Rfam assigns this 141-nucleotide RNA sequence from Albula glossodonta to the family "Small nucleolar RNA SNORA8". Rfam describes the family as follows. ACA8 is a member of the H/ACA class of snoRNA that guide the sites of modification of uridines to pseudouridines. Rfam links the family to the GO terms RNA processing and nucleolus.
[Rfam]
RNA sequence: GGCACUGUAUGGUAUCUGCAGCCAGCUUUCCCCUCAGGCUGGGCUGUUCAUUACACAGUGCGAGAGCAACUCAGCAUCUGGCAUCGUUGGUCUCCAUGCUUUUCGGUGCUGUGGAGUCCUGGUAUUUGUGCUGAGACAAGC
Numbered sequence: 001g002g003c004a005c006u007g008u009a010u011g012g013u014a015u016c017u018g019c020a021g022c023c024a025g026c027u028u029u030c031c032c033c034u035c036a037g038g039c040u041g042g043g044c045u046g047u048u049c050a051u052u053a054c055a056c057a058g059u060g061c062g063a064g065a066g067c068a069a070c071u072c073a074g075c076a077u078c079u080g081g082c083a084u085c086g087u088u089g090g091u092c093u094c095c096a097u098g099c100u101u102u103u104c105g106g107u108g109c110u111g112u113g114g115a116g117u118c119c120u121g122g123u124a125u126u127u128g129u130g131c132u133g134a135g136a137c138a139a140g141c
Stems, first nucleotide, its partner, number of pairs: 002061006018047006024040005065129001068126002071122004080110005